[Rfam]
RNA: mir-1388 microRNA precursor family
RNA sequence: AAGCGGGGGGCACCUCGAGGACUGUCUAACCUGAGAAUGGUGAAACAUGAGGGUCAAUCUCAGGUUCGUCAGCCCAUGAGACGCCUUCUCCAG
Numbered sequence: 001a002a003g004c005g006g007g008g009g010g011c012a013c014c015u016c017g018a019g020g021a022c023u024g025u026c027u028a029a030c031c032u033g034a035g036a037a038u039g040g041u042g043a044a045a046c047a048u049g050a051g052g053g054u055c056a057a058u059c060u061c062a063g064g065u066u067c068g069u070c071a072g073c074c075c076a077u078g079a080g081a082c083g084c085c086u087u088c089u090c091c092a093g
Stems, first nucleotide, its partner, number of pairs: 005090003008086004014080003019075002022072003026068001028066009038056002